The record is a 99-nucleotide RNA sequence from Tetracentron sinense, which matches "Small nucleolar RNA R30/Z108" in Rfam.
A search with the family's covariance model found it, with a score of 88 bits.
The literature on the family includes a 2002 paper in Curr Biol by Marker et al., "Experimental RNomics. Identification of 140 Candidates for Small Non-Messenger RNAs in the Plant Arabidopsis thaliana".
Pairs were carried over by alignment from the consensus structure, which was predicted with PFOLD.
Gene Ontology terms of the family: RNA processing and nucleolus.
Clan: SNORD100 clan.
RNA sequence: AGAGAUUGCGAUGAGGAUAACAAGCUCCCUCUUCUGAAAUCAAGUUGAGGAAAAUCGCUGGCUGAAUCGAACCUAAUACAAAACGCCAUCACUGAGUAA
Number, nucleotide and partner (000 for none) at each position: 001a000002g000003a000004g000005a000006u099007u098008g097009c096010g000011a000012u000013g000014a000015g000016g000017a000018u000019a000020a000021c000022a000023a000024g000025c000026u000027c000028c000029c000030u000031c000032u000033u000034c000035u000036g000037a000038a000039a000040u000041c000042a000043a000044g000045u000046u000047g000048a000049g000050g000051a000052a000053a000054a000055u000056c000057g000058c000059u000060g000061g000062c000063u000064g000065a000066a000067u000068c000069g000070a000071a000072c000073c000074u000075a000076a000077u000078a000079c000080a000081a000082a000083a000084c000085g000086c000087c000088a000089u000090c000091a000092c000093u000094g000095a000096g009097u008098a007099a006